[Rfam]
RNA sequence: GGUCAAGAGUUGCAGCGGAAAGCCCUGGCUCGCUGCACGGCAACCCUCCUCCGCGGUGGGGUGCCCCAGGUGACGACCCGGCUGGACGAACGGUUCAGCAAGCGCGGCUC
Numbered sequence: 001g002g003u004c005a006a007g008a009g010u011u012g013c014a015g016c017g018g019a020a021a022g023c024c025c026u027g028g029c030u031c032g033c034u035g036c037a038c039g040g041c042a043a044c045c046c047u048c049c050u051c052c053g054c055g056g057u058g059g060g061g062u063g064c065c066c067c068a069g070g071u072g073a074c075g076a077c078c079c080g081g082c083u084g085g086a087c088g089a090a091c092g093g094u095u096c097a098g099c100a101a102g103c104g105c106g107g108c109u110c
Stems, first nucleotide, its partner, number of pairs: 001078004009038001011037006021030002039065003044061003048056002081099007

SAM (S-adenosyl methionine) riboswitch aptamer: a 110-nucleotide RNA sequence from Streptomyces sp. NP160. NCBI's taxonomy places the organism under Bacteria, Bacillati, Kitasatosporales, Streptomycetaceae, Streptomyces. SAM-IV is a mRNA element that regulates gene expression via direct sensing of S-adenosylmethionine (SAM or AdoMet). SAM-IV riboswitches share conserved nucleotide positions with the previously described SAM-I riboswitches sequence analysis and molecular recognition experiments suggest that SAM-I and SAM-IV riboswitches share similar ligand binding sites, but have different scaffolds. Pairs were carried over by alignment from the consensus structure, which is taken from published work.